Shown here is a 102-nucleotide RNA from Coffea canephora, a member of the family "Small nucleolar RNA snoR99". Rfam 15.1 lists 733 matches to the family in 222 species. On this family, see Marker et al., Curr Biol 2002: "Experimental RNomics: identification of 140 candidates for small non-messenger RNAs in the plant Arabidopsis thaliana". Lineage of the source: Eukaryota > Embryophyta > eudicotyledons > Pentapetalae > Coffea. Rfam links the family to the GO terms nucleolus and RNA processing. The base pairs follow the family's consensus structure, which was predicted with WAR.

[Rfam]
RNA sequence: UUGCUUCAGGGAUUUAGAAGUUCCUGAUAUGCAAUUUCAUCCAUCCAAUCACUUUGUCAGCAAUACCAUAUGUUUUGCUGGUCAUUCAAGGAUGGAAUACCA
Dot-bracket structure: .......................................((((((..........((((((((...........))))))))........))))))......